[Rfam]
Notes: The record is a 90-nucleotide sequence from Hordeum vulgare, which matches "Small nucleolar RNA Z161/Z228" in Rfam. On this family, see Chen et al., Nucleic Acids Res 2003: "The high diversity of snoRNAs in plants: identification and comparative study of 120 snoRNA genes from Oryza sativa". By type it is a C/D-box small nucleolar RNA.
RNA sequence: GGGACAUAUGAUGAGAAACUGUUUGUCACUCACGACGGUCGUCUGAGACACUUUGUGUGUAUUGCUGCGAUAACACAUUCUCUGAUGUCC
Numbered sequence: 001g002g003g004a005c006a007u008a009u010g011a012u013g014a015g016a017a018a019c020u021g022u023u024u025g026u027c028a029c030u031c032a033c034g035a036c037g038g039u040c041g042u043c044u045g046a047g048a049c050a051c052u053u054u055g056u057g058u059g060u061a062u063u064g065c066u067g068c069g070a071u072a073a074c075a076c077a078u079u080c081u082c083u084g085a086u087g088u089c090c
Base pairs, nucleotide, nucleotide: 001090002089003088049057050056051055